[Rfam]
RNA sequence: CGAUGAGGUAGAGGCGCGAUGUUUAUGAGUAUUUAUUUUUAGGCCGGAAGCCUGUGAUGAAUAAAGAAAGGAACCAUCGCCGAAGCGCAAUCUUCCAAGGAUUGCAGCUGGGUCUGUAUCGAAUAGGUGCAGGACUGUCGUUAAGCAAGCAGCCACUUGUUUAACGUUGAGCUAUCUCCAAU
Numbered sequence: 001c002g003a004u005g006a007g008g009u010a011g012a013g014g015c016g017c018g019a020u021g022u023u024u025a026u027g028a029g030u031a032u033u034u035a036u037u038u039u040u041a042g043g044c045c046g047g048a049a050g051c052c053u054g055u056g057a058u059g060a061a062u063a064a065a066g067a068a069a070g071g072a073a074c075c076a077u078c079g080c081c082g083a084a085g086c087g088c089a090a091u092c093u094u095c096c097a098a099g100g101a102u103u104g105c106a107g108c109u110g111g112g113u114c115u116g117u118a119u120c121g122a123a124u125a126g127g128u129g130c131a132g133g134a135c136u137g138u139c140g141u142u143a144a145g146c147a148a149g150c151a152g153c154c155a156c157u158u159g160u161u162u163a164a165c166g167u168u169g170a171g172c173u174a175u176c177u178c179c180a181a182u
Stems, first nucleotide, its partner, number of pairs: 006177006016080006023073002032065007084109003087105008110136002113133008139166010
RNA: Lysine riboswitch aptamer